This 95-nucleotide sequence from Eucalyptus grandis belongs to the Rfam family "MIR535 microRNA precursor family". For this family Rfam cites "Conservation and divergence of microRNAs and their functions in Euphorbiaceous plants" (Zeng et al., Nucleic Acids Res, 2010). The organism belongs to Eucalyptus, within Eukaryota. Its family is annotated with RISC complex and miRNA-mediated post-transcriptional gene silencing in the Gene Ontology. Pairs were carried over by alignment from the consensus structure, which was predicted with RNAalifold.

RNA sequence: UCCAUCGCAUGACAACGGUAGAGAGCACGCAUGUACACAGUCACGGCACUAGCAUGAACGCAGACAAGCGUGCUCUCUCUCGUUGUCAAGUAAUG
Numbered sequence: 001u002c003c004a005u006c007g008c009a010u011g012a013c014a015a016c017g018g019u020a021g022a023g024a025g026c027a028c029g030c031a032u033g034u035a036c037a038c039a040g041u042c043a044c045g046g047c048a049c050u051a052g053c054a055u056g057a058a059c060g061c062a063g064a065c066a067a068g069c070g071u072g073c074u075c076u077c078u079c080u081c082g083u084u085g086u087c088a089a090g091u092a093a094u095g
Stems, first nucleotide, its partner, number of pairs: 010088005016082002020078002023075001025073006032066003